[Rfam]
RNA sequence: GGGCAUAUAGCUUAGCUGGUAGAGCAGCCGACUCUUAAUCGGCAGGUCCUUGGUUCGAUCCCAAGUAUGCCCA
Numbered sequence: 001g002g003g004c005a006u007a008u009a010g011c012u013u014a015g016c017u018g019g020u021a022g023a024g025c026a027g028c029c030g031a032c033u034c035u036u037a038a039u040c041g042g043c044a045g046g047u048c049c050u051u052g053g054u055u056c057g058a059u060c061c062c063a064a065g066u067a068u069g070c071c072c073a
Base pairs, nucleotide, nucleotide: 001072002071003070004069005068006067007066010025011024012023013022027043028042029041030040031039049065050064051063052062053061